[Rfam]
Rfam assigns this 97-nucleotide RNA from Theobroma umbraticum to the family "Small nucleolar RNA R64/Z200 family". Rfam links the family to the GO terms nucleolus and RNA processing. For this family Rfam cites "Experimental RNomics: identification of 140 candidates for small non-messenger RNAs in the plant Arabidopsis thaliana" (Marker et al., Curr Biol, 2002). The base pairs follow the family's consensus structure, which was predicted with PFOLD.

RNA sequence: CUUCUGCUGUGAUGGAUUAUGAAAUUAAAUACGCAUGUCAGACUUCAGAGAUUUUCCAAAAAUCUAUGAGAAGAAAUUCAUUACUUCUGAGCAGAAG
Numbered sequence: 001c002u003u004c005u006g007c008u009g010u011g012a013u014g015g016a017u018u019a020u021g022a023a024a025u026u027a028a029a030u031a032c033g034c035a036u037g038u039c040a041g042a043c044u045u046c047a048g049a050g051a052u053u054u055u056c057c058a059a060a061a062a063u064c065u066a067u068g069a070g071a072a073g074a075a076a077u078u079c080a081u082u083a084c085u086u087c088u089g090a091g092c093a094g095a096a097g
Stems, first nucleotide, its partner, number of pairs: 001097007050064004
Dot-bracket structure: (((((((..........................................((((.......))))..........................)))))))